Rfam assigns this 89-nucleotide RNA sequence from Streptomyces ipomoeae to the family "ZMP/ZTP riboswitch aptamer (pfl RNA motif)".
RNA sequence: ACGCCGGGUCGUGACUGGCGCGCUGGGAUGGGACGGACCAUCGGGGAGCGGCCCGGGAAAGAUGAGUGCCGUGCGCCUGGGCCGUACCG
Numbered sequence: 001a002c003g004c005c006g007g008g009u010c011g012u013g014a015c016u017g018g019c020g021c022g023c024u025g026g027g028a029u030g031g032g033a034c035g036g037a038c039c040a041u042c043g044g045g046g047a048g049c050g051g052c053c054c055g056g057g058a059a060a061g062a063u064g065a066g067u068g069c070c071g072u073g074c075g076c077c078u079g080g081g082c083c084g085u086a087c088c089g
Base pairs, nucleotide, nucleotide: 004056005055006054007053008052009051010050011049012048015045016044017077018076019075020074021073028041029040030039031038068082069081070080

Annotation
The family's consensus secondary structure is taken from published work.